Shown here is a 208-nucleotide RNA sequence from Scleropages formosus, a member of the family "Small nucleolar RNA SNORA74".
It scores 91 bits against the family's covariance model.
The family is grouped with related families in Rfam's "SNORA74 clan".
A reference for the family is Bortolin and Kiss (1998), "Human U19 intron-encoded snoRNA is processed from a long primary transcript that possesses little potential for protein coding", RNA.
[Rfam]
RNA sequence: CUCAGCGGCAGUCAGCUGUGCAGGCCUGUACCGUGCCUGAACCAGUCAGUGUUACUCUGCUGGGAGAGGAAGGGGCUGCCGCUGAUGCCUGGCUCUGGGAGACACUGUCCUAGUGGCUGCCGAUGCCAGGCUGUGGCAGCGCCGCGUCCCUCUGAGAGUGGGCCGCGUCCGCGCACGCUGGGGCGGCCCUAGUCUGGGGGCAAACAUU
Number, nucleotide and partner (000 for none) at each position: 001c064002u063003c062004a061005g060006c059007g058008g057009c000010a000011g055012u054013c000014a000015g050016c049017u048018g047019u044020g043021c039022a038023g037024g036025c035026c000027u000028g000029u000030a000031c000032c000033g000034u000035g025036c024037c023038u022039g021040a000041a000042c000043c020044a019045g000046u000047c018048a017049g016050u015051g000052u000053u000054a012055c011056u000057c008058u007059g006060c005061u004062g003063g002064g001065a000066g000067a000068g000069g000070a000071a000072g000073g142074g000075g140076c139077u138078g137079c136080c135081g134082c000083u000084g000085a000086u000087g131088c130089c129090u128091g127092g000093c000094u123095c122096u000097g120098g000099g118100a000101g000102a000103c115104a114105c113106u112107g000108u000109c000110c000111u000112a106113g105114u104115g103116g000117c000118u099119g000120c097121c000122g095123a094124u000125g000126c000127c091128a090129g089130g088131c087132u000133g000134u081135g080136g079137c078138a077139g076140c075141g000142c073143c000144g000145c000146g201147u200148c199149c198150c197151u196152c000153u000154g000155a000156g000157a000158g000159u000160g189161g188162g187163c000164c185165g184166c183167g000168u181169c180170c000171g000172c000173g000174c000175a000176c000177g000178c000179u000180g169181g168182g000183g166184c165185g164186g000187c162188c161189c160190u000191a000192g000193u000194c000195u000196g151197g150198g149199g148200g147201c146202a000203a000204a000205c000206a000207u000208u000